[Rfam]
This 89-nucleotide sequence from Liquorilactobacillus capillatus belongs to the Rfam family "TPP riboswitch aptamer (THI element)". A search with the family's covariance model found it, with a score of 76 bits. About the family: Vitamin B(1) in its active form thiamin pyrophosphate (TPP) is an essential coenzyme that is synthesised by coupling of pyrimidine and thiazole moieties in bacteria. The organism belongs to Liquorilactobacillus capillatus, within Bacteria.
RNA sequence: UUAUAUGAGCUGGGGUGCCUUUUGGCUGAGAAAUACCCAUGAGACCUGAUCUGGAUAAUGCCAGCGUAGGGAGCUUAAAUCCAUUGUUU
Dot-bracket structure: .....(((((((((.((((....)))......)..)))).....((((..((((......))))..))))..)))))............